[Rfam]
RNA sequence: GGCCUGCGAGGCUUUUUUUCAGCGAUGAAUAAAAAUAUUGUUCAUCGUUGGAAAAAAGUCUUGGAGA
Numbered sequence: 001g002g003c004c005u006g007c008g009a010g011g012c013u014u015u016u017u018u019u020c021a022g023c024g025a026u027g028a029a030u031a032a033a034a035a036u037a038u039u040g041u042u043c044a045u046c047g048u049u050g051g052a053a054a055a056a057a058g059u060c061u062u063g064g065a066g067a
Stems, first nucleotide, its partner, number of pairs: 004066002007063008016054008025045008
This 67-nucleotide RNA from Apis mellifera belongs to the Rfam family "mir-3747 microRNA precursor family". Its family is annotated with miRNA-mediated post-transcriptional gene silencing and RISC complex in the Gene Ontology. The base pairs follow the family's consensus structure, which was predicted with RNAalifold. It is one of the family's seed sequences.